[Rfam]
RNA sequence: GCUUCGCCUGCCCAGUGUUCAGACUACCUGUUCAGGAAAUUAAGGUUGUACAGUAGUCUGCACAUUGGUUAGGCUGUGUG
Numbered sequence: 001g002c003u004u005c006g007c008c009u010g011c012c013c014a015g016u017g018u019u020c021a022g023a024c025u026a027c028c029u030g031u032u033c034a035g036g037a038a039a040u041u042a043a044g045g046u047u048g049u050a051c052a053g054u055a056g057u058c059u060g061c062a063c064a065u066u067g068g069u070u071a072g073g074c075u076g077u078g079u080g
Stems, first nucleotide, its partner, number of pairs: 012068007020060007028053004033048002
Rfam assigns this 80-nucleotide RNA from Polypterus senegalus to the family "mir-199 microRNA precursor family". The organism belongs to Polypterus, within Eukaryota. For this family Rfam cites "microRNAs: tiny regulators with great potential" (Ambros, Cell, 2001).